Rfam assigns this 305-nucleotide RNA sequence from Gossypium raimondii to the family "Plant signal recognition particle RNA". It scores 226 bits against the family's covariance model. Rfam classes the family as a non-coding RNA gene.
RNA sequence: GCCGAGCCUGGUAGCGCAAGCUUGUGACCCAAGUGGGGGCUUUUAGGUCAUGGAACACGAGUUCUACUCUUUGAGUCGGUUCCACAAUGGUUUGACUCAGGCUUGCCCGUUCCAAGCCGAGAGUUGGACCAAGGGGCACGAGCGUAGGCUUGUGCGUCGCGGUUCUUAGAGUGGGGGAUAAAGCGUGAGGCUGGUUUCACAGAGCAGCGAAAACCCCCCGCUCCCGGCAGUGGAAGGAUAACAGGCCUGAUCCAUUCGGAACCACCACGGCUCAACGAGCUGGCCCCAACUGGACCAUCAUUUUU
Numbered sequence: 001g002c003c004g005a006g007c008c009u010g011g012u013a014g015c016g017c018a019a020g021c022u023u024g025u026g027a028c029c030c031a032a033g034u035g036g037g038g039g040c041u042u043u044u045a046g047g048u049c050a051u052g053g054a055a056c057a058c059g060a061g062u063u064c065u066a067c068u069c070u071u072u073g074a075g076u077c078g079g080u081u082c083c084a085c086a087a088u089g090g091u092u093u094g095a096c097u098c099a100g101g102c103u104u105g106c107c108c109g110u111u112c113c114a115a116g117c118c119g120a121g122a123g124u125u126g127g128a129c130c131a132a133g134g135g136g137c138a139c140g141a142g143c144g145u146a147g148g149c150u151u152g153u154g155c156g157u158c159g160c161g162g163u164u165c166u167u168a169g170a171g172u173g174g175g176g177g178a179u180a181a182a183g184c185g186u187g188a189g190g191c192u193g194g195u196u197u198c199a200c201a202g203a204g205c206a207g208c209g210a211a212a213a214c215c216c217c218c219c220g221c222u223c224c225c226g227g228c229a230g231u232g233g234a235a236g237g238a239u240a241a242c243a244g245g246c247c248u249g250a251u252c253c254a255u256u257c258g259g260a261a262c263c264a265c266c267a268c269g270g271c272u273c274a275a276c277g278a279g280c281u282g283g284c285c286c287c288a289a290c291u292g293g294a295c296c297a298u299c300a301u302u303u304u305u
Base pairs, nucleotide, nucleotide: 001040002039003038004023005022006021007020009018010017028037029036030035045303046302047301048300050298051297052296053295056292057291059287061284062283063282068278069277071275072274073273074272075271076270077269078263079262080261081260082259083258086255088254089253090252093250098249099248100247101246102245103244104243105242107237108236110235111234112233113232114231116228117227118226119225121223122222123221124220126165127164128163129162130161133158134157136155137154138153139152140151141150142149143148166171173218174217175216176215177214184209185208186207191202192201193200